[Rfam]
RNA sequence: UCUGGUAAUGAUGACACACUUGCCCUCACUGAGAAUACCAUUCUAUUAUGAGAACACCAAAGUACUCAAUUAACCUGAACCAGA
Numbered sequence: 001u002c003u004g005g006u007a008a009u010g011a012u013g014a015c016a017c018a019c020u021u022g023c024c025c026u027c028a029c030u031g032a033g034a035a036u037a038c039c040a041u042u043c044u045a046u047u048a049u050g051a052g053a054a055c056a057c058c059a060a061a062g063u064a065c066u067c068a069a070u071u072a073a074c075c076u077g078a079a080c081c082a083g084a
Stems, first nucleotide, its partner, number of pairs: 001084006
RNA: Small nucleolar RNA SNORD103/SNORD85
Organism: Xenopus laevis